RNA sequence: AUAAACAUGCAUCCAGUUAUUUUUGGUUUCUUUUUUAGCUUUAGAUAAGGUUCAUUUUGAGGCAAAAUGAGAAACGAAAAAUAAUUGAAGAGCCUCAGAAAGAGGCUCUUUUUGU
Number, nucleotide and partner (000 for none) at each position: 001a000002u000003a000004a000005a000006c000007a000008u000009g000010c000011a000012u000013c000014c000015a000016g085017u084018u083019a082020u000021u080022u079023u078024u077025g000026g075027u074028u073029u072030c071031u070032u069033u000034u067035u000036u065037a000038g000039c049040u048041u047042u000043a000044g000045a000046u000047a041048a040049g039050g000051u061052u060053c059054a058055u000056u000057u000058u054059g053060a052061g051062g000063c000064a000065a036066a000067a034068u000069g032070a031071g030072a029073a028074a027075c026076g000077a024078a023079a022080a021081a000082u019083a018084a017085u016086u000087g000088a000089a109090g108091a107092g106093c105094c104095u103096c102097a000098g000099a000100a000101a000102g096103a095104g094105g093106c092107u091108c090109u089110u000111u000112u000113u000114g000115u000

A member of the RNA family "Phenylalanine leader peptide" from Zophobihabitans entericus, 115 nucleotides long. A search with the family's covariance model found it, with a score of 56 bits. A reference for the family is Zurawski et al. (1978), "Nucleotide sequence of the leader region of the phenylalanine operon of Escherichia coli", Proc Natl Acad Sci U S A.